Rfam assigns this 188-nucleotide RNA sequence from Fischerella thermalis to the family "Ribosomal protein L10 leader".
Lineage of the source: Bacteria > Cyanobacteriota > Cyanophyceae > Fischerella > Fischerella thermalis.
Rfam's curators write: This family is a putative r-protein leader autoregulatory structure found in B. subtilis and other low-GC Gram-positive bacteria. It is located in the 5' untranslated regions of mRNAs encoding ribosomal proteins L10 and L12 (rplJ-rplL). A Rho-independent transcription terminator structure that is probably involved in regulation is included at the 3' end.
It is annotated as a cis-regulatory leader.
Pairs were carried over by alignment from the consensus structure, which was predicted with CMfinder.
Nucleotides: 188
Base pairs, nucleotide, nucleotide: 028054029053030052031051032050034042035041036040154173155172156171157170158168159167160166161165
Number, partner (000 for none) and nucleotide at each position: 001000c002000a003000a004000a005000a006000u007000u008000a009000a010000a011000u012000a013000g014000c015000a016000a017000a018000g019000c020000c021000g022000g023000a024000g025000a026000c027000a028054g029053c030052a031051g032050g033000u034042g035041c036040c037000g038000u039000u040036g041035g042034c043000u044000u045000a046000a047000u048000a049000c050032c051031c052030u053029g054028c055000c056000g057000a058000g059000g060000u061000u062000u063000g064000c065000a066000u067000c068000c069000a070000g071000a072000u073000u074000g075000c076000u077000u078000g079000a080000a081000u082000u083000u084000c085000u086000a087000c088000c089000c090000u091000u092000c093000u094000u095000u096000g097000g098000u099000g100000u101000g102000g103000u104000a105000g106000u107000u108000c109000u110000g111000g112000c113000a114000u115000c116000a117000g118000g119000a120000u121000a122000a123000g124000g125000g126000u127000a128000g129000u130000u131000g132000c133000a134000a135000a136000u137000c138000u139000a140000c141000c142000u143000u144000u145000c146000a147000a148000c149000c150000a151000a152000a153000a154173c155172c156171c157170c158168g159167g160166c161165u162000a163000u164000g165161a166160g167159c168158c169000u170157g171156g172155g173154g174000u175000u176000u177000a178000u179000u180000g181000u182000u183000u184000u185000c186000g187000g188000u